Shown here is a 129-nucleotide RNA sequence from Callithrix jacchus, a member of the family "Small nucleolar RNA SNORA61". Pairs were carried over by alignment from the consensus structure, which was predicted with PFOLD. Rfam links the family to the GO terms nucleolus and RNA processing. It is annotated as an H/ACA-box small nucleolar RNA.
[Rfam]
RNA sequence: UUACUCCUGUUCCCUUUCCAUCGAAUCUGAAAGUUAGUCUUGCUGGUCGUAAAAGGAGGAAAACUAAUACUGAAGCAGGCCUCAAUGUUGUAAUCUGGUAUAUAGCACGUGAGCUAGCUUCAAACAGGU
Numbered sequence: 001u002u003a004c005u006c007c008u009g010u011u012c013c014c015u016u017u018c019c020a021u022c023g024a025a026u027c028u029g030a031a032a033g034u035u036a037g038u039c040u041u042g043c044u045g046g047u048c049g050u051a052a053a054a055g056g057a058g059g060a061a062a063a064c065u066a067a068u069a070c071u072g073a074a075g076c077a078g079g080c081c082u083c084a085a086u087g088u089u090g091u092a093a094u095c096u097g098g099u100a101u102a103u104a105g106c107a108c109g110u111g112a113g114c115u116a117g118c119u120u121c122a123a124a125c126a127g128g129u
Base pairs, nucleotide, nucleotide: 004058005057006056007055018046019045020044022042025038026037076117078115079114080113082111089107090106091105